Source information
Rfam assigns this 539-nucleotide part of an RNA from Falseniella ignava to the family "Bacterial large subunit ribosomal RNA".
RNA sequence: AAGUAAGGGCGCACGGUGAAUGCCUUGGCACUAGGAGCCGAUGAAGGACGGGACGAACACCGAAAUGCUUUGGGGAGCUGUAAGUAAGCUAAGAUCCAGAGAUAUCCGAAUGGGGGAACCCGGCAACCGCAGGUUGUCACACGCAAGUGAGGUAGACGCAGGGAACUGAAACAUCUUAGUACCUGCAGGAAGAGAAAGCAAACGCGAUUCCCAUAGUAGCGGCGAGCGAAGUGGGACGAGCCCAAACCAAUGUGCAUGCACAUUGGGGUUGUAGGACUCAGACGUGGUAUGAAUCAAGUUAGUCGAAACAUCUGGGAAGGUGUGCGGCACAGGGUGAGAGCCCCGUAGACGAAAGCGAGAUUCAACCUAUGAGUAUCCUGAGUACAGCGGAACACGAGGAAUUCCGUUGGAAUCCGCCAGGACCAUCUGGCAAGGCUAAAUACUCCCUAGUGACCGAUAGUGAACCAGUACCGUGAGGGAAAGGUGAAAAGCACCCCGGGAGGGGAGUGAAAGAGUACCUGAAACCGUGUGCCUACAAG
Number, nucleotide and partner (000 for none) at each position: 001a000002a000003g000004u000005a000006a000007g534008g533009g532010c531011g530012c529013a528014c527015g526016g525017u000018g000019a000020a000021u000022g519023c484024c483025u000026u000027g455028g454029c452030a451031c450032u449033a448034g447035g446036a444037g443038c152039c151040g000041a000042u000043g000044a000045a000046g107047g106048a105049c062050g061051g060052g000053a000054c000055g000056a000057a000058c000059a000060c051061c050062g049063a000064a000065a000066u000067g000068c101069u100070u099071u098072g097073g096074g095075g000076a000077g089078c088079u087080g000081u000082a000083a000084g000085u000086a000087a079088g078089c077090u000091a000092a000093g000094a000095u074096c073097c072098a071099g070100a069101g068102a000103u000104a000105u048106c047107c046108g000109a000110a000111u000112g121113g120114g119115g000116g000117a000118a000119c114120c113121c112122g138123g137124c136125a135126a134127c133128c132129g000130c000131a000132g128133g127134u126135u125136g124137u123138c122139a000140c149141a148142c147143g000144c000145a000146a000147g142148u141149g140150a000151g039152g038153u000154a000155g000156a000157c188158g186159c185160a184161g183162g182163g000164a000165a000166c000167u000168g175169a174170a000171a000172c000173a000174u169175c168176u000177u000178a000179g000180u000181a000182c162183c161184u160185g159186c158187a000188g157189g000190a000191a000192g000193a000194g000195a000196a000197a000198g205199c204200a000201a000202a000203c000204g199205c198206g000207a000208u440209u236210c235211c234212c233213a232214u000215a000216g000217u000218a000219g227220c226221g000222g000223c000224g000225a000226g220227c219228g000229a000230a000231g000232u213233g212234g211235g210236a209237c000238g000239a437240g436241c435242c434243c000244a000245a000246a000247c266248c265249a264250a263251u262252g261253u260254g000255c000256a000257u000258g000259c000260a253261c252262a251263u250264u249265g248266g247267g000268g000269u000270u000271g000272u000273a379274g378275g377276a000277c373278u372279c371280a370281g000282a000283c000284g000285u000286g000287g000288u000289a000290u364291g363292a362293a361294u360295c359296a000297a000298g356299u355300u354301a000302g350303u349304c348305g000306a000307a000308a323309c322310a321311u320312c319313u000314g000315g000316g000317a000318a000319g312320g311321u310322g309323u308324g000325c000326g330327g000328c000329a000330c326331a000332g344333g343334g342335u000336g000337a000338g000339a000340g000341c000342c334343c333344c332345g000346u000347a000348g304349a303350c302351g000352a000353a000354a300355g299356c298357g000358a000359g295360a294361u293362u292363c291364a290365a000366c000367c000368u000369a000370u280371g279372a278373g277374u000375a000376u000377c275378c274379u273380g000381a000382g000383u000384a000385c409386a408387g407388c406389g405390g404391a403392a402393c000394a000395c000396g000397a000398g000399g000400a000401a000402u392403u391404c390405c389406g388407u387408u386409g385410g000411a000412a000413u000414c000415c000416g431417c430418c429419a428420g427421g000422a000423c000424c000425a000426u000427c420428u419429g418430g417431c416432a000433a000434g242435g241436c240437u239438a000439a000440a208441u000442a000443c037444u036445c000446c035447c034448u033449a032450g031451u030452g029453a000454c028455c027456g000457a000458u000459a000460g000461u000462g000463a000464a000465c000466c000467a000468g000469u000470a000471c478472c477473g000474u000475g000476a000477g472478g471479g000480a000481a000482a000483g024484g023485u000486g000487a000488a000489a000490a000491g000492c000493a000494c505495c504496c503497c502498g000499g000500g000501a000502g497503g496504g495505g494506a000507g000508u000509g000510a000511a000512a000513g000514a000515g000516u000517a000518c000519c022520u000521g000522a000523a000524a000525c016526c015527g014528u013529g012530u011531g010532c009533c008534u007535a000536c000537a000538a000539g000
NCBI's taxonomy places the organism under Bacteria, Bacilli, Lactobacillales, Aerococcaceae, Falseniella ignava.